[Rfam]
RNA sequence: GGCGGGGGGCCAUGGGCUGCAACACAGGACAUGGGAGCUUUCUCUCCCCCUCGUGUCUUGUGUUGCAGCCAGUGGAACGGC
Dot-bracket structure: ..........((..((((.(((((((((((.((((..............)))).))))))))))).))))..)).......
RNA: mir-187 microRNA precursor family
Organism: Anguilla anguilla